[Rfam]
Nucleotides: 172
Base pairs, nucleotide, nucleotide: 001016002015003014004013005012006011028172030170031169035165036164040159041158042157043156044155045154046150047149048148049147050146062145063144064143065142066141067140073137074136075135079132080131081130082129083128084127085113086112087111088110091106092105093104094103
Number, partner (000 for none) and nucleotide at each position: 001016u002015c003014c004013a005012u006011c007000g008000u009000g010000a011006g012005g013004u014003g015002g016001a017000a018000u019000c020000u021000g022000a023000a024000g025000g026000a027000a028172g029000u030170c031169g032000g033000c034000g035165g036164c037000a038000a039000a040159g041158c042157u043156c044155u045154g046150g047149u048148c049147u050146g051000a052000g053000g054000u055000a056000c057000a058000c059000g060000a061000a062145c063144u064143a065142c066141a067140u068000u069000u070000g071000a072000g073137g074136c075135u076000u077000a078000a079132c080131c081130c082129u083128g084127u085113g086112g087111a088110u089000g090000a091106g092105g093104c094103u095000g096000c097000u098000a099000a100000a101000c102000a103094a104093g105092u106091c107000a108000a109000a110088g111087u112086c113085c114000a115000a116000a117000a118000c119000u120000a121000u122000c123000c124000g125000a126000a127084a128083c129082a130081g131080g132079g133000a134000a135075a136074g137073u138000a139000g140067a141066u142065g143064u144063a145062g146050c147049a148048g149047a150046u151000a152000u153000a154045u155044g156043g157042a158041g159040u160000g161000a162000a163000a164036g165035u166000u167000u168000a169031c170030g171000u172028u